Rfam assigns this 71-nucleotide sequence from Paenibacillus abyssi to the family "tRNA".
Rfam classes the family as a transfer RNA.
RNA sequence: GCGGGUGUAGUUCAAUGGCAGAACGCCAGCUUCCCAAGCUUGAGGCGAGGGUUCGAUUCCCUUCACCCGCU
Numbered sequence: 001g002c003g004g005g006u007g008u009a010g011u012u013c014a015a016u017g018g019c020a021g022a023a024c025g026c027c028a029g030c031u032u033c034c035c036a037a038g039c040u041u042g043a044g045g046c047g048a049g050g051g052u053u054c055g056a057u058u059c060c061c062u063u064c065a066c067c068c069g070c071u
Stems, first nucleotide, its partner, number of pairs: 001070007010024004026042001028040003047063005
Dot-bracket structure: (((((((..((((.......)))).(.(((.......))).)....(((((.......)))))))))))).

Transfer RNA (tRNA) molecules are approximately 80 nucleotides in length.